RNA: c-di-GMP-I riboswitch aptamer
RNA sequence: UUCUGUGAAACGCAAACUUAUUGAAAGAUAAGGGCGCAAAGCCUCAGGUCUAAGGCCAUGUAUGGUUAAGACGGCUGGGCUGCCGCA
Number, nucleotide and partner (000 for none) at each position: 001u000002u000003c000004u000005g000006u000007g000008a000009a000010a000011c000012g037013c036014a000015a000016a000017c032018u031019u030020a029021u028022u027023g000024a000025a000026a000027g022028a021029u020030a019031a018032g017033g000034g000035c000036g013037c012038a000039a000040a081041g080042c079043c078044u000045c077046a076047g075048g072049u071050c070051u000052a000053a000054g000055g066056c065057c064058a063059u000060g000061u000062a000063u058064g057065g056066u055067u000068a000069a000070g050071a049072c048073g000074g000075c047076u046077g045078g043079g042080c041081u040082g000083c000084c000085g000086c000087a000